[Rfam]
RNA sequence: UAUCCCAGUGAAGAACGUAAGAUUGAAAUAAAAGUAGUGGCCUGAUUGAGUUUGAUGAAAAUAUUGUUCUGAGGGAUA
Numbered sequence: 001u002a003u004c005c006c007a008g009u010g011a012a013g014a015a016c017g018u019a020a021g022a023u024u025g026a027a028a029u030a031a032a033a034g035u036a037g038u039g040g041c042c043u044g045a046u047u048g049a050g051u052u053u054g055a056u057g058a059a060a061a062u063a064u065u066g067u068u069c070u071g072a073g074g075g076a077u078a
Stems, first nucleotide, its partner, number of pairs: 001078006